RNA sequence: UCAGAGGGUCGGGCGGCCGCGGCCCCGUUCGCGAGAACGGGGGCGAGGAAAGUCCGGGCUCCACGGAAACGACGGUGCCGGGUAACGCCCGGCGGGGGCGACCCCAGGGAAAGUGCCACAGAGAGCAAACGGCGACGGCUUCGGCCACGUCACGGUGAAAGGGUGCGGUAAAAGCGCACCGCGGGCCUGGUAACAGGAACGGCAUGGCAAACCCCACCGGGAGCAAGACCGAAUAGGGACGGCACAUGGGCCUCGUUCCGGCCCGUCGUCCGGGUUGGUUGCUGGAGGCGGCGCGCGAGCGUCGUCCUAGAGGAAUGGUCGCCUAUCCCGCGUCAUGCGGGUGGACAGAACCCGGCUUACAGACCCUCUGACGCG
Number, nucleotide and partner (000 for none) at each position: 001u371002c370003a369004g368005a367006g366007g365008g364009u363010c362011g360012g323013g322014c321015g320016g319017c318018c317019g000020c045021g044022g000023c042024c041025c040026c039027g038028u037029u000030c000031g000032c000033g000034a000035g000036a000037a028038c027039g026040g025041g024042g023043g000044c021045g020046a000047g000048g000049a000050a358051a357052g356053u000054c355055c354056g353057g352058g351059c223060u222061c221062c220063a000064c000065g000066g000067a000068a257069a256070c255071g254072a000073c219074g218075g217076u216077g215078c092079c091080g090081g089082g088083u000084a000085a000086c000087g000088c082089c081090c080091g079092g078093c107094g105095g104096g103097g102098g000099c000100g000101a000102c097103c096104c095105c094106a000107g093108g214109g213110a000111a000112a000113g212114u211115g208116c207117c206118a000119c000120a000121g000122a000123g000124a000125g000126c000127a000128a000129a000130c154131g153132g150133c149134g148135a000136c000137g146138g145139c144140u000141u000142c000143g000144g139145c138146c137147a000148c134149g133150u132151c000152a000153c131154g130155g000156u000157g000158a000159a000160a000161g000162g180163g179164u178165g177166c176167g175168g000169u000170a000171a000172a000173a000174g000175c167176g166177c165178a164179c163180c162181g203182c201183g200184g000185g000186c197187c196188u195189g194190g000191u000192a000193a000194c189195a188196g187197g186198a000199a000200c183201g182202g000203c181204a000205u000206g117207g116208c115209a000210a000211a114212c113213c109214c108215c077216a076217c075218c074219g073220g062221g061222a060223g059224c000225a000226a000227g280228a279229c278230c277231g000232a000233a000234u000235a000236g000237g271238g270239a269240c268241g267242g266243c000244a000245c000246a000247u000248g264249g263250g262251c261252c260253u000254c071255g070256u069257u068258c000259c000260g252261g251262c250263c249264c248265g000266u242267c241268g240269u239270c238271c237272g000273g000274g000275u000276u000277g230278g229279u228280u227281g000282c000283u000284g000285g000286a000287g306288g305289c304290g303291g302292c301293g300294c299295g000296c000297g000298a000299g294300c293301g292302u291303c290304g289305u288306c287307c000308u000309a000310g000311a000312g000313g000314a000315a000316u000317g018318g017319u016320c015321g014322c013323c012324u000325a000326u000327c000328c000329c000330g000331c000332g000333u000334c000335a000336u000337g000338c000339g000340g000341g000342u000343g000344g000345a000346c000347a000348g000349a000350a000351c058352c057353c056354g055355g054356c052357u051358u050359a000360c011361a000362g010363a009364c008365c007366c006367u005368c004369u003370g002371a001372c000373g000374c000375g000
Rfam assigns this 375-nucleotide RNA from Sphingomonas desiccabilis to the family "Bacterial RNase P class A". The family's consensus secondary structure is taken from published work. It scores 289 bits against the family's covariance model. The source organism's lineage runs through Bacteria, Pseudomonadota, Alphaproteobacteria, Sphingomonadaceae and Sphingomonas. About the family: Ribonuclease P (RNase P) is a ubiquitous endoribonuclease, found in archaea, bacteria and eukarya as well as chloroplasts and mitochondria. Its best characterised activity is the generation of mature 5'-ends of tRNAs by cleaving the 5'-leader elements of precursor-tRNAs. Cellular RNase Ps are ribonucleoproteins.